[Rfam]
Notes: The family of this 231-nucleotide sequence from Candidatus Viridilinea mediisalina is "FMN riboswitch aptamer (RFN element)". Rfam links the family to the GO term FMN binding. The source organism's lineage runs through Bacteria, Chloroflexota, Chloroflexia, Oscillochloridaceae and Candidatus Viridilinea.
RNA sequence: AUAGACCUUCGGGGCAUGGUGCAAUUCCUGACCGGCGGUGAUGGUGGUUUUUCCACACAAGCCCGCGAGCCGUAAUACCAUUUACGAUUGUAGAUUGCAGAUUGCCGAACAUGGCGUCCCAAUGGGCGUUAGCGUUCUUGAUCAUGCGGCAUGUUCAAGGGUAAUUGGUAUAAGGCAGGACCUGGUGCGAUUCCAGGGCCGACGGUAUAGUCCGGAUGGGAGAAGGUCGGU
Numbered sequence: 001a002u003a004g005a006c007c008u009u010c011g012g013g014g015c016a017u018g019g020u021g022c023a024a025u026u027c028c029u030g031a032c033c034g035g036c037g038g039u040g041a042u043g044g045u046g047g048u049u050u051u052u053c054c055a056c057a058c059a060a061g062c063c064c065g066c067g068a069g070c071c072g073u074a075a076u077a078c079c080a081u082u083u084a085c086g087a088u089u090g091u092a093g094a095u096u097g098c099a100g101a102u103u104g105c106c107g108a109a110c111a112u113g114g115c116g117u118c119c120c121a122a123u124g125g126g127c128g129u130u131a132g133c134g135u136u137c138u139u140g141a142u143c144a145u146g147c148g149g150c151a152u153g154u155u156c157a158a159g160g161g162u163a164a165u166u167g168g169u170a171u172a173a174g175g176c177a178g179g180a181c182c183u184g185g186u187g188c189g190a191u192u193c194c195a196g197g198g199c200c201g202a203c204g205g206u207a208u209a210g211u212c213c214g215g216a217u218g219g220g221a222g223a224a225g226g227u228c229g230g231u
Stems, first nucleotide, its partner, number of pairs: 004228007018028002031211002033201002035066004061199002071175001181197005203214003